[Rfam]
RNA sequence: UCGGGGUGAGGCAACCCCCCGGUCAGGCCGUCGCCCAAGCGUUGC
Number, nucleotide and partner (000 for none) at each position: 001u022002c021003g020004g019005g018006g017007u000008g000009a000010g000011g045012c044013a043014a042015c041016c000017c006018c005019c004020c003021g002022g001023u000024c000025a000026g035027g034028c033029c000030g000031u000032c000033g028034c027035c026036c000037a000038a000039g000040c000041g015042u014043u013044g012045c011
Notes:
chrB-b RNA: a 45-nucleotide RNA from Sphingopyxis lindanitolerans. The base pairs follow the family's consensus structure, which is taken from published work. The match comes from Rfam's covariance-model search (40 bits).